The record is a 469-nucleotide RNA sequence from Parechovirus ahumpari, which matches "Aphthovirus internal ribosome entry site (IRES)" in Rfam. From the family's description: This family represents the internal ribosome entry site (IRES) of the the aphthoviruses. IRES elements allow cap and end-independent translation of mRNA in the host cell.
RNA sequence: ACCUGUAUUAUGUACAGGGUGGCAGAUGGCGUGCCAUAAAUCUAUUAGUGGGAUACCACGCUUGUGGACCUUAUGCCCACACAGCCAUCCUCUAGUAAGUUUGUAAAAUGUCUGGUGAGAUGUGGGAACUUAUUGGAAACAACAAUUUGCUUAAUAGCAUCCUAGUGCCAGCGGAACAACAUCUGGUAACAGAUGCCUCUGGGGCCAAAAGCCAAGGUUUGACAGACCCAUUAGGAUUGGUUUCAAAACCUGAAUUGUUGUGGAAGAUAUUCAGUACCUAUCAAUCUGGUAGUGGUGCAAACACUAGUUGUAAGGCCCACGAAGGAUGCCCAGAAGGUACCCGCAGGUAACAAGAGACACUGUGGAUCUGAUCUGGGGCCAACUACCUCUAUCAGGUGAGUUAGUUAAAAAACGUCUAGUGGGCCAAACCCAGGGGGGAUCCCUGGUUUCCUUUUAUUGUUAAUAUUGA
Numbered sequence: 001a002c003c004u005g006u007a008u009u010a011u012g013u014a015c016a017g018g019g020u021g022g023c024a025g026a027u028g029g030c031g032u033g034c035c036a037u038a039a040a041u042c043u044a045u046u047a048g049u050g051g052g053a054u055a056c057c058a059c060g061c062u063u064g065u066g067g068a069c070c071u072u073a074u075g076c077c078c079a080c081a082c083a084g085c086c087a088u089c090c091u092c093u094a095g096u097a098a099g100u101u102u103g104u105a106a107a108a109u110g111u112c113u114g115g116u117g118a119g120a121u122g123u124g125g126g127a128a129c130u131u132a133u134u135g136g137a138a139a140c141a142a143c144a145a146u147u148u149g150c151u152u153a154a155u156a157g158c159a160u161c162c163u164a165g166u167g168c169c170a171g172c173g174g175a176a177c178a179a180c181a182u183c184u185g186g187u188a189a190c191a192g193a194u195g196c197c198u199c200u201g202g203g204g205c206c207a208a209a210a211g212c213c214a215a216g217g218u219u220u221g222a223c224a225g226a227c228c229c230a231u232u233a234g235g236a237u238u239g240g241u242u243u244c245a246a247a248a249c250c251u252g253a254a255u256u257g258u259u260g261u262g263g264a265a266g267a268u269a270u271u272c273a274g275u276a277c278c279u280a281u282c283a284a285u286c287u288g289g290u291a292g293u294g295g296u297g298c299a300a301a302c303a304c305u306a307g308u309u310g311u312a313a314g315g316c317c318c319a320c321g322a323a324g325g326a327u328g329c330c331c332a333g334a335a336g337g338u339a340c341c342c343g344c345a346g347g348u349a350a351c352a353a354g355a356g357a358c359a360c361u362g363u364g365g366a367u368c369u370g371a372u373c374u375g376g377g378g379c380c381a382a383c384u385a386c387c388u389c390u391a392u393c394a395g396g397u398g399a400g401u402u403a404g405u406u407a408a409a410a411a412a413c414g415u416c417u418a419g420u421g422g423g424c425c426a427a428a429c430c431c432a433g434g435g436g437g438g439a440u441c442c443c444u445g446g447u448u449u450c451c452u453u454u455u456a457u458u459g460u461u462a463a464u465a466u467u468g469a
Base pairs, nucleotide, nucleotide: 006012007011029090031088032087033085034084043075044074045073047062048061049060050059051057092307093306094305095304096303100301101300102299107293111289112288114286115285117282118281120279126272127271128270139261140260141259142258143257144256145255146254147253148252159237160236161235162234163233164232165231166230167229168202169201170200171199173197174196181194182193183192184191185190203213204212205211216228217227218226219225239250240249241248314425315424316423317422318421329377330376331375332374335369336368337367338366342364343363344362345361346360379404381402382401383400384399385397386396430446431445432444433443435442436441